[Rfam]
RNA sequence: GCCGAGUUUGGUAACAUGAGCUUGUAACCUGAGUAGGGGCUUUAAGGUGAUGGAAUGUGAGUUUGGCUUUACUGAGUUGGAUCUCGGGUGGUUCAAAUCUGGCUUGCCCGUUCCAAGUUGAGAGUUGAGCCAAGGUACCAGAGUGUAAACUCUGAGUCUCGUGGUUCCUAAAGUGGAGGGUACUGCGUGAGGCUGGUUUCACAGAGCAGCGAAGACCUCUCUCUCUCUUGACAGUGGAAUAAAGGAACUAAAAUUUGUGUUGAAAAAUGAAAAUAGAAGCAAAAAUAGAUGUUGAAAGAAAAGACAAAAGUUGACUUUU
Numbered sequence: 001g002c003c004g005a006g007u008u009u010g011g012u013a014a015c016a017u018g019a020g021c022u023u024g025u026a027a028c029c030u031g032a033g034u035a036g037g038g039g040c041u042u043u044a045a046g047g048u049g050a051u052g053g054a055a056u057g058u059g060a061g062u063u064u065g066g067c068u069u070u071a072c073u074g075a076g077u078u079g080g081a082u083c084u085c086g087g088g089u090g091g092u093u094c095a096a097a098u099c100u101g102g103c104u105u106g107c108c109c110g111u112u113c114c115a116a117g118u119u120g121a122g123a124g125u126u127g128a129g130c131c132a133a134g135g136u137a138c139c140a141g142a143g144u145g146u147a148a149a150c151u152c153u154g155a156g157u158c159u160c161g162u163g164g165u166u167c168c169u170a171a172a173g174u175g176g177a178g179g180g181u182a183c184u185g186c187g188u189g190a191g192g193c194u195g196g197u198u199u200c201a202c203a204g205a206g207c208a209g210c211g212a213a214g215a216c217c218u219c220u221c222u223c224u225c226u227c228u229u230g231a232c233a234g235u236g237g238a239a240u241a242a243a244g245g246a247a248c249u250a251a252a253a254u255u256u257g258u259g260u261u262g263a264a265a266a267a268u269g270a271a272a273a274u275a276g277a278a279g280c281a282a283a284a285a286u287a288g289a290u291g292u293u294g295a296a297a298g299a300a301a302a303g304a305c306a307a308a309a310g311u312u313g314a315c316u317u318u319u
Stems, first nucleotide, its partner, number of pairs: 001040003004023007028037003044318005050312001056306002058302001062297003066293001068289004073284001077282003080274001082272001084270003089266001092264002099257001101255002104252002108245002111239005117232008127167006134160002137157002139154006168173001175220005184213001186211003193204003
The record is a 319-nucleotide RNA sequence from Gossypium stocksii, which matches "Plant signal recognition particle RNA" in Rfam. The family is grouped with related families in Rfam's "SRP clan". Pairs were carried over by alignment from the consensus structure, which is taken from published work. A search with the family's covariance model found it, with a score of 125 bits. The source organism's lineage runs through Eukaryota, Gunneridae, rosids, Malvoideae and Gossypium.